The family of this 87-nucleotide sequence from Pipistrellus kuhlii is "mir-9195 microRNA precursor family". Taxonomically the source falls in Pipistrellus (Eukaryota, Euteleostomi, Amniota, Mammalia). Rfam links the family to the GO terms RISC complex and miRNA-mediated post-transcriptional gene silencing.
RNA sequence: AGAGGCCCUCCGCGGCCAGGGCGGAAUGCUUGUCUCAUCGCUGUGGCGAUGAGGCAAGCAUUCCGUCAGGCCACUCACACUGCCCAC
Numbered sequence: 001a002g003a004g005g006c007c008c009u010c011c012g013c014g015g016c017c018a019g020g021g022c023g024g025a026a027u028g029c030u031u032g033u034c035u036c037a038u039c040g041c042u043g044u045g046g047c048g049a050u051g052a053g054g055c056a057a058g059c060a061u062u063c064c065g066u067c068a069g070g071c072c073a074c075u076c077a078c079a080c081u082g083c084c085c086a087c
Stems, first nucleotide, its partner, number of pairs: 004084003012074001014072004020067014037050005